[Rfam]
RNA sequence: GCCCCGUUGCGCGGUCUACGCAGGCGGGGCCAUCUGUACAGCAAGCCGCCCGUAACGACACGGGGUGGCACGGAUGAGGAGGU
Numbered sequence: 001g002c003c004c005c006g007u008u009g010c011g012c013g014g015u016c017u018a019c020g021c022a023g024g025c026g027g028g029g030c031c032a033u034c035u036g037u038a039c040a041g042c043a044a045g046c047c048g049c050c051c052g053u054a055a056c057g058a059c060a061c062g063g064g065g066u067g068g069c070a071c072g073g074a075u076g077a078g079g080a081g082g083u
Stems, first nucleotide, its partner, number of pairs: 001030008009021003032075006045069007
This 83-nucleotide RNA belongs to the Rfam family "aspS RNA". The family's consensus secondary structure is taken from published work. The family's RNA type in Rfam is cis-regulatory element.